[Rfam]
RNA sequence: GACCCCUUAGCUCAGUGGUAGAGCGUGUGAUUCCAGCCAAUGCGGGUCCACAAGGUCGUGCGUUCAACUCGCUCAGGGGUCA
Numbered sequence: 001g002a003c004c005c006c007u008u009a010g011c012u013c014a015g016u017g018g019u020a021g022a023g024c025g026u027g028u029g030a031u032u033c034c035a036g037c038c039a040a041u042g043c044g045g046g047u048c049c050a051c052a053a054g055g056u057c058g059u060g061c062g063u064u065c066a067a068c069u070c071g072c073u074c075a076g077g078g079g080u081c082a
Stems, first nucleotide, its partner, number of pairs: 001081007010024004026052004058074001060072003

A member of the RNA family "tRNA" from Armillaria gallica, 82 nucleotides long. Pairs were carried over by alignment from the consensus structure, which is taken from published work. The family's RNA type in Rfam is transfer RNA. The match comes from Rfam's covariance-model search (51 bits). Taxonomically the source falls in Armillaria (Eukaryota, Opisthokonta, Agaricales, Physalacriaceae).